[Rfam]
RNA sequence: AAAAGGAGCAAUAGCUUACCUCUUGUUUUAUCAAGAGGGAAGCUAUUGCUCCUUUUU
Number, nucleotide and partner (000 for none) at each position: 001a000002a055003a054004a053005g052006g051007a050008g049009c048010a047011a046012u045013a044014g000015c000016u000017u040018a000019c000020c037021u036022c035023u034024u033025g032026u000027u000028u000029u000030a000031u000032c025033a024034a023035g022036a021037g020038g000039g000040a017041a000042g000043c000044u013045a012046u011047u010048g009049c008050u007051c006052c005053u004054u003055u002056u000057u000
About this RNA: This 57-nucleotide RNA sequence from Atractylodes macrocephala belongs to the Rfam family "Plastid-psbA-4 3UTR RNA". Plastid psbA-4 is a non-coding RNA (ncRNA) present in plastids. It was identified in inverted repeat sequences in the 3 prime untranslate region (3UTR) of photosystem II quinone-binding protein (psbA). The family's consensus secondary structure was predicted with LocARNA. On this family, see Richter et al., Plant Commun 2023: "Retrograde signaling in plants: A critical review focusing on the GUN pathway and beyond". It is annotated as a cis-regulatory element. Clan: Plastid-psbA 3UTR RNA clan.